[Rfam]
RNA: Molybdenum/Tungsten riboswitch aptamer (Moco RNA motif)
RNA sequence: AGUACGUUCAACCUCCGAGCUGUGCCGCCUAACAGGGGAAACCUCAUGGCAGCCGGCCAACGGGUGUCGCUGGAAACGGCGCCGCCUCCCUUUGGAAAGGAGAUGACAUCCGCUUAAG
Numbered sequence: 001a002g003u004a005c006g007u008u009c010a011a012c013c014u015c016c017g018a019g020c021u022g023u024g025c026c027g028c029c030u031a032a033c034a035g036g037g038g039a040a041a042c043c044u045c046a047u048g049g050c051a052g053c054c055g056g057c058c059a060a061c062g063g064g065u066g067u068c069g070c071u072g073g074a075a076a077c078g079g080c081g082c083c084g085c086c087u088c089c090c091u092u093u094g095g096a097a098a099g100g101a102g103a104u105g106a107c108a109u110c111c112g113c114u115u116a117a118g
Stems, first nucleotide, its partner, number of pairs: 003112001006109001011104001013102004019057004024053002027050003034044003062087005068081005088095002